[Rfam]
Rfam assigns this 258-nucleotide sequence from Sphingobium fontiphilum to the family "Ruegeria trans44 sRNA". It scores 188 bits against the family's covariance model. The family's consensus secondary structure was predicted with RNAfold. By type it is a small RNA. The organism belongs to Sphingobium, within Bacteria.
RNA sequence: CAUCGCGAUGCUCUCUUCAUAGGAACAUCGUGAUGAGGAUACUAUCAAAGCGUCAGCUCAAGGAGUUGGUUCUGUACUCACCGCAGCACAUCGCACGAUUGGAAAAGGCCGGGCAAUUCCCCACGCGGGUACAACUUGGCCCUUCCCGAGUGGGGUGGGUUGAAGCUGAAGUGCUCGACUGACUCCAGAAACGGUUGGAUCGUCGAGAAGCGCCUAGCCGACACUCCUUCUGAAGGAGCGCUUGAAGGCUGACGCCGA
Numbered sequence: 001c002a003u004c005g006c007g008a009u010g011c012u013c014u015c016u017u018c019a020u021a022g023g024a025a026c027a028u029c030g031u032g033a034u035g036a037g038g039a040u041a042c043u044a045u046c047a048a049a050g051c052g053u054c055a056g057c058u059c060a061a062g063g064a065g066u067u068g069g070u071u072c073u074g075u076a077c078u079c080a081c082c083g084c085a086g087c088a089c090a091u092c093g094c095a096c097g098a099u100u101g102g103a104a105a106a107g108g109c110c111g112g113g114c115a116a117u118u119c120c121c122c123a124c125g126c127g128g129g130u131a132c133a134a135c136u137u138g139g140c141c142c143u144u145c146c147c148g149a150g151u152g153g154g155g156u157g158g159g160u161u162g163a164a165g166c167u168g169a170a171g172u173g174c175u176c177g178a179c180u181g182a183c184u185c186c187a188g189a190a191a192c193g194g195u196u197g198g199a200u201c202g203u204c205g206a207g208a209a210g211c212g213c214c215u216a217g218c219c220g221a222c223a224c225u226c227c228u229u230c231u232g233a234a235g236g237a238g239c240g241c242u243u244g245a246a247g248g249c250u251g252a253c254g255c256c257g258a
Base pairs, nucleotide, nucleotide: 001035002034003033004032005031006030007029008028009027010026012025014023015022016021053198054197055196056195057194058193062186063185064184065183066182067181068180069179070178071177075173076172077171078170079168080167081165084162085161086160087159089157090156091155092154094152095151096150099148101146107141108140109139111136112135119129120128121127200248201247203245204244205243206242219240220239224238225237226236227235228234229233